[Rfam]
The record is a 38-nucleotide RNA from Homarus americanus, which matches "Guanidine-II riboswitch aptamer (mini-ykkC)" in Rfam. The source organism's lineage runs through Eukaryota, Panarthropoda, Altocrustacea, Pleocyemata and Homarus. From the family's description: Simpler in structure and has fewer highly conserved nucleotide positions than the ykkC-yxkD leader. It scores 32 bits against the family's covariance model.
RNA sequence: UGGGGGACGACCCCUACACCUUGCUGGGGGACGACCCC
Number, nucleotide and partner (000 for none) at each position: 001u016002g015003g014004g013005g012006g011007a000008c000009g000010a000011c006012c005013c004014c003015u002016a001017c000018a000019c000020c000021u000022u000023g000024c000025u000026g000027g038028g037029g036030g035031a000032c000033g000034a000035c030036c029037c028038c027